The family of this 324-nucleotide sequence from Chryseobacterium sp. RU37D is "Bacterial RNase P class A".
The organism belongs to Chryseobacterium, within Bacteria.
It is annotated as a ribozyme.
The match comes from Rfam's covariance-model search (187 bits).
The base pairs follow the family's consensus structure, which is taken from published work.
RNA sequence: CGAGAAAGUCGGCUUGUUGAUUCUUAUUUCGGUAAGGGUAGGAAAGUCCGGACACCGUAGAGCAGCAAAGCGGAUAACAUCCGUCACCCGUGAGGGUAGGACCAGUGCAACAGAAAGGAUGUACAGUUCGGCUGUAGUGAAAUCAGGUAAACUCUUUGUGGUGCAAUGAUAAGUAUAUCGGUUCUUUUCAGCAAUGAAAAUAGGGGUUGCUCGCCCUGAAAGCCGAGGGGUAAUCAGCUAAAGUCCUGCAGCAAUGUAUGACGCAGAUAAAUAACAGGCACUUCUUCGGAAGCACAAAAUCCGGCUUAUAGAUUUUCUCGUGGU
Numbered sequence: 001c002g003a004g005a006a007a008g009u010c011g012g013c014u015u016g017u018u019g020a021u022u023c024u025u026a027u028u029u030c031g032g033u034a035a036g037g038g039u040a041g042g043a044a045a046g047u048c049c050g051g052a053c054a055c056c057g058u059a060g061a062g063c064a065g066c067a068a069a070g071c072g073g074a075u076a077a078c079a080u081c082c083g084u085c086a087c088c089c090g091u092g093a094g095g096g097u098a099g100g101a102c103c104a105g106u107g108c109a110a111c112a113g114a115a116a117g118g119a120u121g122u123a124c125a126g127u128u129c130g131g132c133u134g135u136a137g138u139g140a141a142a143u144c145a146g147g148u149a150a151a152c153u154c155u156u157u158g159u160g161g162u163g164c165a166a167u168g169a170u171a172a173g174u175a176u177a178u179c180g181g182u183u184c185u186u187u188u189c190a191g192c193a194a195u196g197a198a199a200a201u202a203g204g205g206g207u208u209g210c211u212c213g214c215c216c217u218g219a220a221a222g223c224c225g226a227g228g229g230g231u232a233a234u235c236a237g238c239u240a241a242a243g244u245c246c247u248g249c250a251g252c253a254a255u256g257u258a259u260g261a262c263g264c265a266g267a268u269a270a271a272u273a274a275c276a277g278g279c280a281c282u283u284c285u286u287c288g289g290a291a292g293c294a295c296a297a298a299a300u301c302c303g304g305c306u307u308a309u310a311g312a313u314u315u316u317c318u319c320g321u322g323g324u
Base pairs, nucleotide, nucleotide: 001320002319003318004317005316006315007314008313009312010311011309012279013278014277015276016275017274018273020039021038022037023036024035025034026033027032044307045306046305048304049303050302051301052300053163054162055161056160060212061211062210063209065159066158067157068156069155070084071083072082073081074080085099086097087096088095089094100154101153105152106151107148108147122136123135124134125133126132127131167236168235169234170233178226179225180224181223182222203217204216205215206214207213243262244261245260247258248257249256250255